[Rfam]
Rfam assigns this 111-nucleotide RNA sequence from Nannospalax galili to the family "Small nucleolar RNA SNORD67". It scores 37 bits against the family's covariance model. By type it is a C/D-box small nucleolar RNA. NCBI's taxonomy places the organism under Eukaryota, Amniota, Theria, Myomorpha, Nannospalax. On this family, see Huttenhofer et al., EMBO J 2001: "RNomics: an experimental approach that identifies 201 candidates for novel, small, non-messenger RNAs in mouse". Pairs were carried over by alignment from the consensus structure.
RNA sequence: UAGAAGAAUGAUGUAUUGCACACUGUGGAGUCACAGUACUGAAGGAUGCAGACAUCUUCAGUAUUGCCUUAAUUUUUUAAAAAAAAGUACACAGGGGCCAGCCACUUAGUC
Numbered sequence: 001u002a003g004a005a006g007a008a009u010g011a012u013g014u015a016u017u018g019c020a021c022a023c024u025g026u027g028g029a030g031u032c033a034c035a036g037u038a039c040u041g042a043a044g045g046a047u048g049c050a051g052a053c054a055u056c057u058u059c060a061g062u063a064u065u066g067c068c069u070u071a072a073u074u075u076u077u078u079a080a081a082a083a084a085a086a087g088u089a090c091a092c093a094g095g096g097g098c099c100a101g102c103c104a105c106u107u108a109g110u111c
Base pairs, nucleotide, nucleotide: 004110007107008106022062023061024060025059027056028055030053031052032051036049037048038047040045